[Rfam]
RNA sequence: AUUUAGCCUCGAUAGUAGCGGUAUCCUUUAUGCUUGGCGUUCAAGCAUAAAGAUAUAGCGAAUAGCGAGAAGAAUA
Numbered sequence: 001a002u003u004u005a006g007c008c009u010c011g012a013u014a015g016u017a018g019c020g021g022u023a024u025c026c027u028u029u030a031u032g033c034u035u036g037g038c039g040u041u042c043a044a045g046c047a048u049a050a051a052g053a054u055a056u057a058g059c060g061a062a063u064a065g066c067g068a069g070a071a072g073a074a075u076a
Stems, first nucleotide, its partner, number of pairs: 009068003013064002018059002023054003029049008
The record is a 76-nucleotide sequence from Flavobacterium pygoscelis, which matches "Flavo-1 RNA" in Rfam.
Pairs were carried over by alignment from the consensus structure, which is taken from published work.
It is annotated as a small RNA.
A search with the family's covariance model found it, with a score of 76 bits.